[Rfam]
RNA sequence: UUCGAGCUGGGUAGCGUCAGCUUGUAGCUCAAGUGAGGGCAUUAAGGUGAUGGAACCUGACUCAGUAUCCACAUGGUAGGGUCAGGGGUUGUAGUUUACUGGCUUGCCUGUUCCAAGCUGAGAGUUGGGCUGGGUGGGUUAGACGAAUGUCUAGCCCGAACGGCCCCUGAAGAGGAGGGCACCGCGUCACGCUGGCUUCACAGAGCAGCGAACACCUCCCGCUCUCGACAGUGGAAGGAUAAUAAGCCGGGGCACAGCCGACCCAUUGGUACCCUGUGGGCUGAGCUCAGUUGGACCAUCACCUUU
Numbered sequence: 001u002u003c004g005a006g007c008u009g010g011g012u013a014g015c016g017u018c019a020g021c022u023u024g025u026a027g028c029u030c031a032a033g034u035g036a037g038g039g040c041a042u043u044a045a046g047g048u049g050a051u052g053g054a055a056c057c058u059g060a061c062u063c064a065g066u067a068u069c070c071a072c073a074u075g076g077u078a079g080g081g082u083c084a085g086g087g088g089u090u091g092u093a094g095u096u097u098a099c100u101g102g103c104u105u106g107c108c109u110g111u112u113c114c115a116a117g118c119u120g121a122g123a124g125u126u127g128g129g130c131u132g133g134g135u136g137g138g139u140u141a142g143a144c145g146a147a148u149g150u151c152u153a154g155c156c157c158g159a160a161c162g163g164c165c166c167c168u169g170a171a172g173a174g175g176a177g178g179g180c181a182c183c184g185c186g187u188c189a190c191g192c193u194g195g196c197u198u199c200a201c202a203g204a205g206c207a208g209c210g211a212a213c214a215c216c217u218c219c220c221g222c223u224c225u226c227g228a229c230a231g232u233g234g235a236a237g238g239a240u241a242a243u244a245a246g247c248c249g250g251g252g253c254a255c256a257g258c259c260g261a262c263c264c265a266u267u268g269g270u271a272c273c274c275u276g277u278g279g280g281c282u283g284a285g286c287u288c289a290g291u292u293g294g295a296c297c298a299u300c301a302c303c304u305u306u
Stems, first nucleotide, its partner, number of pairs: 002039002004023007028037003044305010056293001058289003061285006069279005075273004079264005085258001090254002099250008108238002111236005117229001119227007127166006135158010167172001174219005185210003192203003
Description:
The record is a 306-nucleotide RNA from Carnegiea gigantea, which matches "Plant signal recognition particle RNA" in Rfam. By type it is a non-coding RNA gene. The base pairs follow the family's consensus structure, which is taken from published work. The organism belongs to Carnegiea, within Eukaryota.